[Rfam]
RNA sequence: UUUUCGGCGACGAAAGGGUCUGAAGGAAGCUGAUGGCGGCUGUUGGAACGUAACGCAAGUGAACCAGUGUUGGCGUAUGUAGUGGACAACUCUCCACGAAAUGGGGACAUCCUAAAAUUAGCUUAGCUACAUGCGUUAUGAUGGACGUUUUAACAACAGGCAGAGCAAC
Numbered sequence: 001u002u003u004u005c006g007g008c009g010a011c012g013a014a015a016g017g018g019u020c021u022g023a024a025g026g027a028a029g030c031u032g033a034u035g036g037c038g039g040c041u042g043u044u045g046g047a048a049c050g051u052a053a054c055g056c057a058a059g060u061g062a063a064c065c066a067g068u069g070u071u072g073g074c075g076u077a078u079g080u081a082g083u084g085g086a087c088a089a090c091u092c093u094c095c096a097c098g099a100a101a102u103g104g105g106g107a108c109a110u111c112c113u114a115a116a117a118u119u120a121g122c123u124u125a126g127c128u129a130c131a132u133g134c135g136u137u138a139u140g141a142u143g144g145a146c147g148u149u150u151u152a153a154c155a156a157c158a159g160g161c162a163g164a165g166c167a168a169c
Stems, first nucleotide, its partner, number of pairs: 001016006029169001031167002036161002041155011064144003068140001073136003077132007084112003090105003
The family of this 169-nucleotide RNA from Anaerovirgula multivorans is "Group II catalytic intron D1-D4-3". Group II introns are found in rRNA, tRNA and mRNA of organelles in fungi, plants and protists, and also in mRNA in bacteria. Lineage of the source: Bacteria > Bacillati > Bacillota > Peptostreptococcales > Anaerovirgula. It scores 61 bits against the family's covariance model. The literature on the family includes a 2003 paper in Crit Rev Biochem Mol Biol by Lehmann and Schmidt, "Group II introns: structure and catalytic versatility of large natural ribozymes". Pairs were carried over by alignment from the consensus structure.